The family of this 92-nucleotide sequence from Bacteroides sp. OM05-12 is "TPP riboswitch aptamer (THI element)". Taxonomically the source falls in Bacteroides (Bacteria, Bacteroidota, Bacteroidales, Bacteroidaceae). It scores 73 bits against the family's covariance model.
[Rfam]
RNA sequence: UGUAAAACAAAGGGGUGCCCCGGUGGGCUGAGAUUAUACCCUGAGAACCUGAUGCAGUUAGUACUGCCGAAGGGAUUGUUACUCUUUUCUUU
Number, nucleotide and partner (000 for none) at each position: 001u000002g000003u000004a000005a000006a080007a079008c078009a077010a076011a042012g041013g040014g039015g000016u036017g028018c027019c026020c025021c000022g000023g000024u000025g020026g019027g018028c017029u000030g000031a000032g000033a000034u000035u000036a016037u000038a000039c014040c013041c012042u011043g000044a000045g000046a000047a000048c073049c072050u071051g000052a000053u000054g067055c066056a065057g064058u000059u000060a000061g000062u000063a000064c057065u056066g055067c054068c000069g000070a000071a050072g049073g048074g000075a000076u010077u009078g008079u007080u006081a000082c000083u000084c000085u000086u000087u000088u000089c000090u000091u000092u000
Pairs were carried over by alignment from the consensus structure, which is taken from published work. From the family's description: Vitamin B(1) in its active form thiamin pyrophosphate (TPP) is an essential coenzyme that is synthesised by coupling of pyrimidine and thiazole moieties in bacteria.